Background: Shown here is a 73-nucleotide sequence from Cebus imitator, a member of the family "mir-4435 microRNA precursor family". The family has 2 seed sequences and 25 matches in Rfam 15.1. Rfam links the family to the GO terms RISC complex and miRNA-mediated post-transcriptional gene silencing. The organism belongs to Cebus, within Eukaryota.
[Rfam]
RNA sequence: GCAAAUGGCCGGAGUUCACGCACAGGAAUGGGUGCACUCACCUGCAGUGUGACUCAGCAGACCGACGGAAGCA
Numbered sequence: 001g002c003a004a005a006u007g008g009c010c011g012g013a014g015u016u017c018a019c020g021c022a023c024a025g026g027a028a029u030g031g032g033u034g035c036a037c038u039c040a041c042c043u044g045c046a047g048u049g050u051g052a053c054u055c056a057g058c059a060g061a062c063c064g065a066c067g068g069a070a071g072c073a
Stems, first nucleotide, its partner, number of pairs: 001072002006064003010060001012055003016052006025043002029040004